[Rfam]
RNA sequence: CUACUCCCUCCGUCCCGUAAUGUAAGACGUUUUUUGACACUACCGUAGUGUCAGAAAGCAUCUUAUAUUAUGGGACGGAGGGAGUAC
Numbered sequence: 001c002u003a004c005u006c007c008c009u010c011c012g013u014c015c016c017g018u019a020a021u022g023u024a025a026g027a028c029g030u031u032u033u034u035u036g037a038c039a040c041u042a043c044c045g046u047a048g049u050g051u052c053a054g055a056a057a058g059c060a061u062c063u064u065a066u067a068u069u070a071u072g073g074g075a076c077g078g079a080g081g082g083a084g085u086a087c
Base pairs, nucleotide, nucleotide: 003085004084005083007081008080009079010078011077013075014074015073016072017071019069020068021067022066023065024064025063026062027061029059030058031057032056033055034054035053036052037051038050039049040048041047
RNA: MIR1120/MIR1122 microRNA precursor family